Overview: Rfam assigns this 116-nucleotide RNA from Cronobacter sakazakii to the family "ArcZ RNA". Pairs were carried over by alignment from the consensus structure, which was predicted with PFOLD. Its family is annotated with protein binding and regulation of translation in the Gene Ontology.

[Rfam]
RNA sequence: GAGCGCCUUGAUCACUCAGGCCGCGCCACGUAGUUAAAAAGAUCAACAUCAUUAAUCAAUGGCGAGGCCACGAUUUCCCUGGUGUUGGCGCAGUAUUCGCGCACCCCGGUUUAGCC
Numbered sequence: 001g002a003g004c005g006c007c008u009u010g011a012u013c014a015c016u017c018a019g020g021c022c023g024c025g026c027c028a029c030g031u032a033g034u035u036a037a038a039a040a041g042a043u044c045a046a047c048a049u050c051a052u053u054a055a056u057c058a059a060u061g062g063c064g065a066g067g068c069c070a071c072g073a074u075u076u077c078c079c080u081g082g083u084g085u086u087g088g089c090g091c092a093g094u095a096u097u098c099g100c101g102c103a104c105c106c107c108g109g110u111u112u113a114g115c116c
Stems, first nucleotide, its partner, number of pairs: 020068003024064004081105003088102004
It is annotated as a small RNA. About the family: This RNA was discovered in E. coli during a large scale screen.